Rfam assigns this 58-nucleotide sequence from Monodelphis domestica to the family "mir-1545 microRNA precursor family". Pairs were carried over by alignment from the consensus structure, which was predicted with RNAalifold. Gene Ontology terms of the family: RISC complex and miRNA-mediated post-transcriptional gene silencing. The sequence is in the family's curated seed alignment. The source organism's lineage runs through Eukaryota, Euteleostomi, Tetrapoda, Mammalia and Monodelphis.
RNA sequence: AGUGCCCUGGGAUAGAUAAGAGGUCCCCUUAAAAUCCACUUUCCAUCCCUCGUACUGU
Numbered sequence: 001a002g003u004g005c006c007c008u009g010g011g012a013u014a015g016a017u018a019a020g021a022g023g024u025c026c027c028c029u030u031a032a033a034a035u036c037c038a039c040u041u042u043c044c045a046u047c048c049c050u051c052g053u054a055c056u057g058u
Base pairs, nucleotide, nucleotide: 001056002055003054004053005052009049010048011047012046013045015043016042018040020039022036023035024034